[Rfam]
RNA: U1 spliceosomal RNA
RNA sequence: ACUCAGACCUGGCAGGGAAGAUACCAUUCUUGUAAGAGUGGGUUUCCCAGGGUAAGGCUCAUCUAUUGCACUUCAGAUGAGCUGACCCCUGUGAUUUCCCCAAAUGUGGGAAAAUCAACUGCCUAAAUGGGGGACUGUGUUUCUGGUUUCCCCUG
Numbered sequence: 001a002c003u004c005a006g007a008c009c010u011g012g013c014a015g016g017g018a019a020g021a022u023a024c025c026a027u028u029c030u031u032g033u034a035a036g037a038g039u040g041g042g043u044u045u046c047c048c049a050g051g052g053u054a055a056g057g058c059u060c061a062u063c064u065a066u067u068g069c070a071c072u073u074c075a076g077a078u079g080a081g082c083u084g085a086c087c088c089c090u091g092u093g094a095u096u097u098c099c100c101c102a103a104a105u106g107u108g109g110g111a112a113a114a115u116c117a118a119c120u121g122c123c124u125a126a127a128u129g130g131g132g133g134a135c136u137g138u139g140u141u142u143c144u145g146g147u148u149u150c151c152c153c154u155g
Stems, first nucleotide, its partner, number of pairs: 012122004016048002019045003024041004049090004056083003060079005092117003095113003099109002129154006138145002